A member of the RNA family "Group I catalytic intron" from Mortierella sp. AM989, 265 nucleotides long.
Pairs were carried over by alignment from the consensus structure, which is taken from published work.
The source organism's lineage runs through Eukaryota, Mortierellomycota, Mortierellomycotina, Mortierellaceae and Mortierella.

RNA sequence: UUAGCAGAGUUAAGUUCAGCUCCUUAAAAUAGUAAUAUUUUAAAGCAAAUAGGGUGAAUUGCAAAGACAUCCCUUAUACAAAGGGACAAUUCGCAGCGAAGCUUAUUCCGACACAACAAAUUAAAUUUAAUUUGGAAUAAGAACGUUCAACGACUAGAGAGUGAGUAAUGUCGACAAUAAUCUCUCCAAGAGCGCCCUACAUCCAAUAAAACAAUAUAAUAAAAUUUGGAUGAUGACAUAGUCUAAGCCAAUAGGUAACUAUUGG
Numbered sequence: 001u002u003a004g005c006a007g008a009g010u011u012a013a014g015u016u017c018a019g020c021u022c023c024u025u026a027a028a029a030u031a032g033u034a035a036u037a038u039u040u041u042a043a044a045g046c047a048a049a050u051a052g053g054g055u056g057a058a059u060u061g062c063a064a065a066g067a068c069a070u071c072c073c074u075u076a077u078a079c080a081a082a083g084g085g086a087c088a089a090u091u092c093g094c095a096g097c098g099a100a101g102c103u104u105a106u107u108c109c110g111a112c113a114c115a116a117c118a119a120a121u122u123a124a125a126u127u128u129a130a131u132u133u134g135g136a137a138u139a140a141g142a143a144c145g146u147u148c149a150a151c152g153a154c155u156a157g158a159g160a161g162u163g164a165g166u167a168a169u170g171u172c173g174a175c176a177a178u179a180a181u182c183u184c185u186c187c188a189a190g191a192g193c194g195c196c197c198u199a200c201a202u203c204c205a206a207u208a209a210a211a212c213a214a215u216a217u218a219a220u221a222a223a224a225u226u227u228g229g230a231u232g233a234u235g236a237c238a239u240a241g242u243c244u245a246a247g248c249c250a251a252u253a254g255g256u257a258a259c260u261a262u263u264g265g
Stems, first nucleotide, its partner, number of pairs: 007022005028039003050199004055194002060095003064091002070086005096146002103139001108135004150244001152243005202230005250263005

Background:
It scores 94 bits against the family's covariance model.